Shown here is a 509-nucleotide sequence from Streptacidiphilus fuscans, a member of the family "Saccharopolyspora sRNA 350".
RNA sequence: UGGGCGGUGUGCAGCCAGAGCGGGUCGCUGGUCAGCACCGCCUCGUCGCCGAGGUGGUCGCCGUCGGCGACGGUGCCCAGCACGUUGGUGCUGCCGUACUUGCCGGUGCUCAGCUGGUUGAUCCGGCCGUGGGCGACGAUGAAGACCUCUUCGAUCGGCGUCCCCUCCUCCACCAGGACCUCUCCGGCGCGGAACUCGCGCGGCCGGAACCGGGAGGCGAGCUCGGCCAGCACCGCGUCGUCCGUGAAGUCCCGCAGCGCGGGGAUCUCGCGCAGCGUCUCCGGGAUGAUCCGGACGUCGUCCGCGCCGUUCUGCACGAAGCCGACGCGACCGCGCCCGACCGCCAGGGUCAGUCGGCGGUUCACCCGGUAGGUGCCGCCCUUGACGUCGACCCAGGGCAGCGACCGCAGCAGCCACCGGGAGCUGAUGCCCUGCAUCUGCGGGGUCGACUUGGUGGUGGUGGCGAGAUUGCGCGCGGCCUUGGUACUGAGGCUCUGCUGGUCGGAAGC
Numbered sequence: 001u002g003g004g005c006g007g008u009g010u011g012c013a014g015c016c017a018g019a020g021c022g023g024g025u026c027g028c029u030g031g032u033c034a035g036c037a038c039c040g041c042c043u044c045g046u047c048g049c050c051g052a053g054g055u056g057g058u059c060g061c062c063g064u065c066g067g068c069g070a071c072g073g074u075g076c077c078c079a080g081c082a083c084g085u086u087g088g089u090g091c092u093g094c095c096g097u098a099c100u101u102g103c104c105g106g107u108g109c110u111c112a113g114c115u116g117g118u119u120g121a122u123c124c125g126g127c128c129g130u131g132g133g134c135g136a137c138g139a140u141g142a143a144g145a146c147c148u149c150u151u152c153g154a155u156c157g158g159c160g161u162c163c164c165c166u167c168c169u170c171c172a173c174c175a176g177g178a179c180c181u182c183u184c185c186g187g188c189g190c191g192g193a194a195c196u197c198g199c200g201c202g203g204c205c206g207g208a209a210c211c212g213g214g215a216g217g218c219g220a221g222c223u224c225g226g227c228c229a230g231c232a233c234c235g236c237g238u239c240g241u242c243c244g245u246g247a248a249g250u251c252c253c254g255c256a257g258c259g260c261g262g263g264g265a266u267c268u269c270g271c272g273c274a275g276c277g278u279c280u281c282c283g284g285g286a287u288g289a290u291c292c293g294g295a296c297g298u299c300g301u302c303c304g305c306g307c308c309g310u311u312c313u314g315c316a317c318g319a320a321g322c323c324g325a326c327g328c329g330a331c332c333g334c335g336c337c338c339g340a341c342c343g344c345c346a347g348g349g350u351c352a353g354u355c356g357g358c359g360g361u362u363c364a365c366c367c368g369g370u371a372g373g374u375g376c377c378g379c380c381c382u383u384g385a386c387g388u389c390g391a392c393c394c395a396g397g398g399c400a401g402c403g404a405c406c407g408c409a410g411c412a413g414c415c416a417c418c419g420g421g422a423g424c425u426g427a428u429g430c431c432c433u434g435c436a437u438c439u440g441c442g443g444g445g446u447c448g449a450c451u452u453g454g455u456g457g458u459g460g461u462g463g464c465g466a467g468a469u470u471g472c473g474c475g476c477g478g479c480c481u482u483g484g485u486a487c488u489g490a491g492g493c494u495c496u497g498c499u500g501g502u503c504g505g506a507a508g509c
Stems, first nucleotide, its partner, number of pairs: 006393003011388002015384001018331001025325003029321001032319002040315001042309001045308001047306003051302002054233002058229001060227004066110003075103001077102001079100002082097003086093001117222003122217002127212001129210002132205003138199001143196002149192002155187004160182001161178002237299001240296005245289001249287006257276002259271003333344003356380005363375004394434007402426002406421001408419001410418001440479002443476001445474002449470001451467002454464002483509001485507001487505003490499002
Dot-bracket structure: .....(((..((..(..(......(((.(..((......(.(..(.(((.((.((..(.((((..(((......(.(.((.(((.(......).))).)).))....)))......(((..((...(.((.(((...(....((....((....((((.(((..............))...).))))...))..))..)...)))...)).)...))..))).)))).)..))...(..((((((...((((((..(((((.......)))...)).....)))))).)..)))))..).)).))).)).....)..)).).))).....).(((......)))...........(((((..((((.....)))))))))...)..))..)))(((((((.((..(.(.(.......)).)...)).))))))).....((.(.((..(.((.((.......)).))..)..)).).))...(.(.(((((......))...))).).)

Notes: The match comes from Rfam's covariance-model search (85 bits).